A member of the RNA family "Manganese Mn2+ riboswitch aptamer (yybP-ykoY)" from Caballeronia sp. SBC1, 128 nucleotides long.
Rfam links the family to the GO term manganese ion binding.
The pairing is the family consensus, mapped onto this sequence.
The organism belongs to Caballeronia, within Bacteria.
Rfam's curators write: This RNA was originally discovered in E. coli during a large scale screen and was named SraF. The family was later found to exist upstream of related families of protein genes in many bacteria, including the the yybP and ykoK genes in B. subtilis.
It scores 56 bits against the family's covariance model.
RNA sequence: UCGUCCGUCUUUGGGGAGUAGCCGGCUUCCACUUGCUGGAAGCGCUCAUGUCAACACGCUUGGUUCAAUCGAACCGUGGCAUGAGCCGCCGUUAGCUUUUUGGUUGGCAAGACCAUCGAUGUAGCGGU
Dot-bracket structure: ........................(((.............)))((((((((((.......(((((......))))))))))))))).(((((((...........................)))))))
Numbered sequence: 001u002c003g004u005c006c007g008u009c010u011u012u013g014g015g016g017a018g019u020a021g022c023c024g025g026c027u028u029c030c031a032c033u034u035g036c037u038g039g040a041a042g043c044g045c046u047c048a049u050g051u052c053a054a055c056a057c058g059c060u061u062g063g064u065u066c067a068a069u070c071g072a073a074c075c076g077u078g079g080c081a082u083g084a085g086c087c088g089c090c091g092u093u094a095g096c097u098u099u100u101u102g103g104u105u106g107g108c109a110a111g112a113c114c115a116u117c118g119a120u121g122u123a124g125c126g127g128u
Stems, first nucleotide, its partner, number of pairs: 025043003044086010061076005088128007